A member of the RNA family "ODC internal ribosome entry site (IRES)" from Ovis aries, 158 nucleotides long. Rfam links the family to the GO term ribosome binding. The organism belongs to Ovis, within Eukaryota. Rfam 15.1 lists 437 matches to the family in 128 species. It scores 99 bits against the family's covariance model. For this family Rfam cites "Alternative splicing facilitates internal ribosome entry on the ornithine decarboxylase mRNA" (Pyronnet et al., Cell Mol Life Sci, 2005).
RNA sequence: AUUUCCACUACUGCAUGGAGGGCACAUGCAUCUUCAGUGGGACUUGGAAUUCCUGGAGAAUUGCCUUUGUGACAAGUUGACAUAAUCUCUUUAAAUUCUAUCUCUAAGUUUUCCAUAUUUGUCUAUAUCUUGAGAGUCCCUUGAACUGCAAGGAGAUC
Numbered sequence: 001a002u003u004u005c006c007a008c009u010a011c012u013g014c015a016u017g018g019a020g021g022g023c024a025c026a027u028g029c030a031u032c033u034u035c036a037g038u039g040g041g042a043c044u045u046g047g048a049a050u051u052c053c054u055g056g057a058g059a060a061u062u063g064c065c066u067u068u069g070u071g072a073c074a075a076g077u078u079g080a081c082a083u084a085a086u087c088u089c090u091u092u093a094a095a096u097u098c099u100a101u102c103u104c105u106a107a108g109u110u111u112u113c114c115a116u117a118u119u120u121g122u123c124u125a126u127a128u129c130u131u132g133a134g135a136g137u138c139c140c141u142u143g144a145a146c147u148g149c150a151a152g153g154a155g156a157u158c
Stems, first nucleotide, its partner, number of pairs: 010077003016071001018068007026061002039054004085157005090151002096145003
Dot-bracket structure: .........(((...(.(((((((.((...........((((........)))).....)))))))))..)...))).......(((((((....(((............................................)))....)).))))).